[Rfam]
RNA: SAM (S-adenosyl methionine) riboswitch aptamer
RNA sequence: GGUCACGAGUGCCAGCAGAUAGCCCCGGCUUGCUGGCCGGCAACCCUCCAACCGCGGUGGGGUGCCCCGGGUGACGACCUGGCCCCGACCACUCGGUCGAGGCAAGCGCGGACU
Numbered sequence: 001g002g003u004c005a006c007g008a009g010u011g012c013c014a015g016c017a018g019a020u021a022g023c024c025c026c027g028g029c030u031u032g033c034u035g036g037c038c039g040g041c042a043a044c045c046c047u048c049c050a051a052c053c054g055c056g057g058u059g060g061g062g063u064g065c066c067c068c069g070g071g072u073g074a075c076g077a078c079c080u081g082g083c084c085c086c087g088a089c090c091a092c093u094c095g096g097u098c099g100a101g102g103c104a105a106g107c108g109c110g111g112a113c114u
Base pairs, nucleotide, nucleotide: 001079002078003077004076009038011037012036013035014034015033016032021030022029039066040065041064044062045061046060048057049056082103083102084101086099087098088097089096090095